[Rfam]
RNA sequence: ACACAUUACAUGGUGCAGGGGAAAUACCAUGUCAUAAAAGUGAUUUUCCCAGGGGGAGGCUCAUCUAUUGCACUUCAGGUAUGCUGCUAAACCCUAUGAUUUCCCCAAAUGUGGGGAACUCAACUGCAUAAUUUGUGUUAAUGGGGGAUUCCCCUUGUGAUUUCCCUG
Numbered sequence: 001a002c003a004c005a006u007u008a009c010a011u012g013g014u015g016c017a018g019g020g021g022a023a024a025u026a027c028c029a030u031g032u033c034a035u036a037a038a039a040g041u042g043a044u045u046u047u048c049c050c051a052g053g054g055g056g057a058g059g060c061u062c063a064u065c066u067a068u069u070g071c072a073c074u075u076c077a078g079g080u081a082u083g084c085u086g087c088u089a090a091a092c093c094c095u096a097u098g099a100u101u102u103c104c105c106c107a108a109a110u111g112u113g114g115g116g117a118a119c120u121c122a123a124c125u126g127c128a129u130a131a132u133u134u135g136u137g138u139u140a141a142u143g144g145g146g147g148a149u150u151c152c153c154c155u156u157g158u159g160a161u162u163u164c165c166c167u168g
Base pairs, nucleotide, nucleotide: 015127016126017125018124019050020049021048022047023046024045026044028042029041030040051095052094053093054092058088059087060086062083063082064081065079066078097122098121099120100118101117102116104114105113142168143167144166145165146164148163152159